Rfam assigns this 273-nucleotide RNA from Propithecus coquereli to the family "Mason-Pfizer monkey virus packaging signal". A search with the family's covariance model found it, with a score of 209 bits. By type it is a cis-regulatory element. Rfam 15.1 lists 2,921 matches to the family in 53 species.

[Rfam]
RNA sequence: UGGCGCCCAACGUGGGGCUCUGGAUACGGGGGAUCCAGUAAGGAAGAAGACGCGAGGUUGCCGGCGCUUGUGAAACGAAAGUAAAUUCCUUCAACCGCCGCGGGAGCCUGCCGCGCGGGAGCAGAAGGUGAGUACGUCUGAAUAUGGGGCAGGGAUUAAGCCAACAUCAGCUUUAUGUUAAACAGUUAAAGGAUGCUUUAAAGACACAAGAAAUAAAGGUUAAAAGACAUGAUUUAUUUGAAUUUUUUGAUUUUAUAGAGAAUAUUUGCCCUU
Numbered sequence: 001u002g003g004c005g006c007c008c009a010a011c012g013u014g015g016g017g018c019u020c021u022g023g024a025u026a027c028g029g030g031g032g033a034u035c036c037a038g039u040a041a042g043g044a045a046g047a048a049g050a051c052g053c054g055a056g057g058u059u060g061c062c063g064g065c066g067c068u069u070g071u072g073a074a075a076c077g078a079a080a081g082u083a084a085a086u087u088c089c090u091u092c093a094a095c096c097g098c099c100g101c102g103g104g105a106g107c108c109u110g111c112c113g114c115g116c117g118g119g120a121g122c123a124g125a126a127g128g129u130g131a132g133u134a135c136g137u138c139u140g141a142a143u144a145u146g147g148g149g150c151a152g153g154g155a156u157u158a159a160g161c162c163a164a165c166a167u168c169a170g171c172u173u174u175a176u177g178u179u180a181a182a183c184a185g186u187u188a189a190a191g192g193a194u195g196c197u198u199u200a201a202a203g204a205c206a207c208a209a210g211a212a213a214u215a216a217a218g219g220u221u222a223a224a225a226g227a228c229a230u231g232a233u234u235u236a237u238u239u240g241a242a243u244u245u246u247u248u249g250a251u252u253u254u255a256u257a258g259a260g261a262a263u264a265u266u267u268g269c270c271c272u273u
Stems, first nucleotide, its partner, number of pairs: 006032003012027003039047001088128002090125002095119002099115005135149001137148004157200003160196002207249008217235006258273003263268001